[Rfam]
RNA sequence: CGGCCGGGGCGUGUUCCCCGGCCGUCCGGAACCAGCUGACACCGGUACCUGAUACGGCCGGUGCAG
Numbered sequence: 001c002g003g004c005c006g007g008g009g010c011g012u013g014u015u016c017c018c019c020g021g022c023c024g025u026c027c028g029g030a031a032c033c034a035g036c037u038g039a040c041a042c043c044g045g046u047a048c049c050u051g052a053u054a055c056g057g058c059c060g061g062u063g064c065a066g
Stems, first nucleotide, its partner, number of pairs: 001024009036066003040063007